[Rfam]
RNA: glmS glucosamine-6-phosphate activated ribozyme aptamer
Organism: Flintibacter hominis
RNA sequence: GGCCCAUCAGAAGCGCCAGUGCCCCCGGCUGAACUGGGGGACGACGAGGAGAGGGGAAAAUGGCUGGGAAGGACUGUUUCCUUCAAUAUCCGGCCAUGAUCGAAAGAUUCGGCGGAUGCCCCUCCGUGCGGGCUCCGGGUGCGUGACACAGUCAGAAAUAUGCGGGCGACCGCAAAACAGAGGGGCUGUGACCGGGGGAC
Numbered sequence: 001g002g003c004c005c006a007u008c009a010g011a012a013g014c015g016c017c018a019g020u021g022c023c024c025c026c027g028g029c030u031g032a033a034c035u036g037g038g039g040g041a042c043g044a045c046g047a048g049g050a051g052a053g054g055g056g057a058a059a060a061u062g063g064c065u066g067g068g069a070a071g072g073a074c075u076g077u078u079u080c081c082u083u084c085a086a087u088a089u090c091c092g093g094c095c096a097u098g099a100u101c102g103a104a105a106g107a108u109u110c111g112g113c114g115g116a117u118g119c120c121c122c123u124c125c126g127u128g129c130g131g132g133c134u135c136c137g138g139g140u141g142c143g144u145g146a147c148a149c150a151g152u153c154a155g156a157a158a159u160a161u162g163c164g165g166g167c168g169a170c171c172g173c174a175a176a177a178c179a180g181a182g183g184g185g186c187u188g189u190g191a192c193c194g195g196g197g198g199a200c
Stems, first nucleotide, its partner, number of pairs: 022040006051124005061111002125143005147190007161174005